[Rfam]
RNA sequence: GUCAGAUACCUACACAACGGAUCGUUCGGCACGUACCUGCCGGUGAAGGAGCAAAAA
Numbered sequence: 001g002u003c004a005g006a007u008a009c010c011u012a013c014a015c016a017a018c019g020g021a022u023c024g025u026u027c028g029g030c031a032c033g034u035a036c037c038u039g040c041c042g043g044u045g046a047a048g049g050a051g052c053a054a055a056a057a
Stems, first nucleotide, its partner, number of pairs: 009049003013045002026043006

Annotation:
msiK RNA: a 57-nucleotide RNA sequence from Candidatus Aquiluna sp. UB-MaderosW2red. Pairs were carried over by alignment from the consensus structure, which is taken from published work. It scores 60 bits against the family's covariance model. Lineage of the source: Bacteria > Bacillati > Actinomycetota > Micrococcales > Aquiluna.